Shown here is a 132-nucleotide sequence from Camelus dromedarius, a member of the family "Small nucleolar RNA SNORA61". Pairs were carried over by alignment from the consensus structure, which was predicted with PFOLD. Taxonomically the source falls in Camelus (Eukaryota, Teleostomi, Sarcopterygii, Artiodactyla). The family has 25 seed sequences and 881 matches in Rfam 15.1. ACA61 is a member of the H/ACA class of snoRNA that guide the sites of modification of uridines to pseudouridines.
RNA sequence: UACCUGCCGGUUCCCUUUCCCGUCGGAUCUGAACACUGGUCUUGGUGGUCUUAAAAGGAGGAAUGGUGGUACUGAAGCUAUACUCACAGUCCAUGUAUCCACUAUAUAGCUUGUGGGCUAGUUUCAUCAGGG
Numbered sequence: 001u002a003c004c005u006g007c008c009g010g011u012u013c014c015c016u017u018u019c020c021c022g023u024c025g026g027a028u029c030u031g032a033a034c035a036c037u038g039g040u041c042u043u044g045g046u047g048g049u050c051u052u053a054a055a056a057g058g059a060g061g062a063a064u065g066g067u068g069g070u071a072c073u074g075a076a077g078c079u080a081u082a083c084u085c086a087c088a089g090u091c092c093a094u095g096u097a098u099c100c101a102c103u104a105u106a107u108a109g110c111u112u113g114u115g116g117g118c119u120a121g122u123u124u125c126a127u128c129a130g131g132g
Stems, first nucleotide, its partner, number of pairs: 003061003007058002020048005026041004078121003083116002093111001